[Rfam]
RNA sequence: AAAAAGGCUCUUUUAAGAGCCAAAAAUUUAAAAAUUAGAAUUCGCU
Numbered sequence: 001a002a003a004a005a006g007g008c009u010c011u012u013u014u015a016a017g018a019g020c021c022a023a024a025a026a027u028u029u030a031a032a033a034a035u036u037a038g039a040a041u042u043c044g045c046u
Base pairs, nucleotide, nucleotide: 006021007020008019009018010017011016
Notes: The record is a 46-nucleotide sequence from Nephila pilipes, which matches "Histone 3' UTR stem-loop" in Rfam.